[Rfam]
RNA sequence: GGAGGAGUAGCGAAGUCUGGCUAAACGCGGCGGACCGUAAAUCCGCUCCUUCGGGUUCGAUGGUUCAAAUCCAUUCUCCUCCA
Numbered sequence: 001g002g003a004g005g006a007g008u009a010g011c012g013a014a015g016u017c018u019g020g021c022u023a024a025a026c027g028c029g030g031c032g033g034a035c036c037g038u039a040a041a042u043c044c045g046c047u048c049c050u051u052c053g054g055g056u057u058c059g060a061u062g063g064u065u066c067a068a069a070u071c072c073a074u075u076c077u078c079c080u081c082c083a
Stems, first nucleotide, its partner, number of pairs: 001082007010028003030046005059075005
Shown here is an 83-nucleotide sequence from Philodulcilactobacillus myokonensis, a member of the family "tRNA". Rfam classes the family as a transfer RNA. The organism belongs to Philodulcilactobacillus, within Bacteria.